Rfam assigns this 112-nucleotide RNA sequence from Azotobacter chroococcum to the family "Pseudomon-1/ErsA RNA". Pairs were carried over by alignment from the consensus structure, which is taken from published work.
RNA sequence: AUGCUCCUUGUUGUGUUAAGUGUUGGCAGAUAUGCGGACUCCCUGGAGUCCGACGUUAAACCCCGAACCUCUUCCUCCCCCAUAUGAAGUUCGGGGUUUUUUUUGUUCCCGA
Numbered sequence: 001a002u003g004c005u006c007c008u009u010g011u012u013g014u015g016u017u018a019a020g021u022g023u024u025g026g027c028a029g030a031u032a033u034g035c036g037g038a039c040u041c042c043c044u045g046g047a048g049u050c051c052g053a054c055g056u057u058a059a060a061c062c063c064c065g066a067a068c069c070u071c072u073u074c075c076u077c078c079c080c081c082a083u084a085u086g087a088a089g090u091u092c093g094g095g096g097u098u099u100u101u102u103u104u105g106u107u108c109c110c111g112a
Stems, first nucleotide, its partner, number of pairs: 035052006058100003061096008070087002
NCBI's taxonomy places the organism under Bacteria, Pseudomonadota, Pseudomonadaceae, Azotobacter, Azotobacter chroococcum.
The literature on the family includes a 2015 paper in Environ Microbiol by Ferrara et al., "Post-transcriptional regulation of the virulence-associated enzyme AlgC by the sigma(22) -dependent small RNA ErsA of Pseudomonas aeruginosa".
About the family: Functions to regulate the AlgC enzyme. Based on this information, the new name ErsA for the RNA was adopted. Negatively regulates major porin oprD expression responsible for uptake of carbapenem antibiotics, by base pairing with oprD 5'UTR (leading to increased bacterial resistance to meropenem).Positively regulates amrZ mRNA and contributes to biofilm formation and motility.
Rfam links the family to the GO terms positive regulation of translation, ncRNA-mediated, response to antibiotic and mRNA binding.
A search with the family's covariance model found it, with a score of 92 bits.